c-di-GMP-I riboswitch aptamer: an 87-nucleotide RNA sequence from Mesobacillus zeae. Gene Ontology term of the family: cyclic-di-GMP binding. The organism belongs to Mesobacillus, within Bacteria.
RNA sequence: AGAUGAAAAAGGCAAACUUAUCGAAAGAUAAGGACGCAAAGCCACGGGUCUAAAAUUCUUUUGAAUGAUGAUAGCCGGGUUGCCAAA
Numbered sequence: 001a002g003a004u005g006a007a008a009a010a011g012g013c014a015a016a017c018u019u020a021u022c023g024a025a026a027g028a029u030a031a032g033g034a035c036g037c038a039a040a041g042c043c044a045c046g047g048g049u050c051u052a053a054a055a056u057u058c059u060u061u062u063g064a065a066u067g068a069u070g071a072u073a074g075c076c077g078g079g080u081u082g083c084c085a086a087a
Stems, first nucleotide, its partner, number of pairs: 012037002017032006040081004045077003048072003055066004